[Rfam]
RNA sequence: UCCCAUGCUGUGGCCCUCUAGAGAAAGCACUUUCUGUUUGUUGUCUGAGGAAAAACAAAGUGCUUCCCUUCAGAGUGUGGCUGUUUGGGA
Numbered sequence: 001u002c003c004c005a006u007g008c009u010g011u012g013g014c015c016c017u018c019u020a021g022a023g024a025a026a027g028c029a030c031u032u033u034c035u036g037u038u039u040g041u042u043g044u045c046u047g048a049g050g051a052a053a054a055a056c057a058a059a060g061u062g063c064u065u066c067c068c069u070u071c072a073g074a075g076u077g078u079g080g081c082u083g084u085u086u087g088g089g090a
Stems, first nucleotide, its partner, number of pairs: 001090005007084002010081002013078002016075003021070003025065009037055002